RNA sequence: UGAUGUAAGUGUCAGAAUUAUAGGAUAGCGUAAUGUGCUCGCACAAAUAAGCAAUAAUACUUAUAGACACGCCGAACACCGAAAACGAAAUAAAAUGGAGUGAACAUGCCAUUAUAUGGGAGUAAGAGGUGUACGAGGAUAGCGGGAAUUGCAUAGCAAAGGAGCAAUCCGGUAACAUCA
Dot-bracket structure: ((((((....(((.......((..((.((.((.((((....))))..)).)).))..))......)))....((.(((((....((...(((.(((((..........))))).)))....))....))))).)).((((.((.....(((.....)))....)).))))....))))))
The record is a 180-nucleotide RNA, which matches "Clostridiales-1 RNA" in Rfam. Rfam's curators put it in the seed alignment. The family has 194 seed sequences and 1,172 matches in Rfam 15.1.